BsrG: a 251-nucleotide RNA from Halalkalibacterium halodurans. The family's consensus secondary structure was predicted with WAR. From the family's description: bsrE, bsrG and bsrH pair through intermolecular interactions with antisense sRNAs. They form type I toxin/antitoxin system that includes an mRNA encoding for a short, toxic peptide (bsrE, bsrG and bsrH) and an antitoxin that is comprised of an antisense RNA. bsrG encodes a 39-amino-acid toxin, and the 180 nucleotide antisense sRNA called SR4 acts as the antitoxin (they overlap by 123 nucleotides). The literature on the family includes a 2008 paper in Gene by Saito et al., "Novel small RNA-encoding genes in the intergenic regions of Bacillus subtilis". The source organism's lineage runs through Bacteria, Bacillati, Bacilli, Bacillaceae and Halalkalibacterium halodurans. The family's RNA type in Rfam is small RNA.
RNA sequence: CAAUAGAAUAGGAUUUCUCGAGGGUGGUCGGCACACUCCCAAGUUGAAAGGGGGUGGUGCUGUUUGACGGUAUUUGAAGCGUUGAUGUUUGCCGUAGCGUUUGCGACUUUAAUCAUCGCGGUGCUGUCGUUUCAUGAAAAAAAAUAAUCCACCCUUGAGUUAGCGGCUCAGGUGGAUUCGUCUAUCCUAUGGCCGAUCCCCUUGGAGGGAACCGUUUUAUUGCAUGACCGUCGAUGUUACCGCAUCGGCGG
Numbered sequence: 001c002a003a004u005a006g007a008a009u010a011g012g013a014u015u016u017c018u019c020g021a022g023g024g025u026g027g028u029c030g031g032c033a034c035a036c037u038c039c040c041a042a043g044u045u046g047a048a049a050g051g052g053g054g055u056g057g058u059g060c061u062g063u064u065u066g067a068c069g070g071u072a073u074u075u076g077a078a079g080c081g082u083u084g085a086u087g088u089u090u091g092c093c094g095u096a097g098c099g100u101u102u103g104c105g106a107c108u109u110u111a112a113u114c115a116u117c118g119c120g121g122u123g124c125u126g127u128c129g130u131u132u133c134a135u136g137a138a139a140a141a142a143a144a145u146a147a148u149c150c151a152c153c154c155u156u157g158a159g160u161u162a163g164c165g166g167c168u169c170a171g172g173u174g175g176a177u178u179c180g181u182c183u184a185u186c187c188u189a190u191g192g193c194c195g196a197u198c199c200c201c202u203u204g205g206a207g208g209g210a211a212c213c214g215u216u217u218u219a220u221u222g223c224a225u226g227a228c229c230g231u232c233g234a235u236g237u238u239a240c241c242g243c244a245u246c247g248g249c250g251g
Base pairs, nucleotide, nucleotide: 001222002221003220004219005218007216008215009214011212015196016195017159018158019157020156021155022154023153024152026149027148028147034056035055037054038053039052040051066128067127068126069125070124071123072122079093081092102120103119104118105117170188171187197210198209199208200207228251229250230249231248232247233246234245235244236243237242